This 116-nucleotide RNA from Desulfuribacillus stibiiarsenatis belongs to the Rfam family "Molybdenum/Tungsten riboswitch aptamer (Moco RNA motif)". A reference for the family is Regulski et al. (2008), "in molybdenum cofactor and tungsten cofactor metabolism", Mol Microbiol. A search with the family's covariance model found it, with a score of 74 bits. The family's consensus secondary structure is taken from published work.
[Rfam]
RNA sequence: AAUAUUGAUUGUCUCCGAGCUUUUUUGCCUAAGGUUUACUACGGUAAGAUUGCCGAUUAGGGUUAUACUGGAAACGGUUUGGCCUCCCACUGGAAAGGAGAUACGGUCUGUACAUG
Numbered sequence: 001a002a003u004a005u006u007g008a009u010u011g012u013c014u015c016c017g018a019g020c021u022u023u024u025u026u027g028c029c030u031a032a033g034g035u036u037u038a039c040u041a042c043g044g045u046a047a048g049a050u051u052g053c054c055g056a057u058u059a060g061g062g063u064u065a066u067a068c069u070g071g072a073a074a075c076g077g078u079u080u081g082g083c084c085u086c087c088c089a090c091u092g093g094a095a096a097g098g099a100g101a102u103a104c105g106g107u108c109u110g111u112a113c114a115u116g
Stems, first nucleotide, its partner, number of pairs: 003110002011102006019053002023049007033040002060085006067078004086093002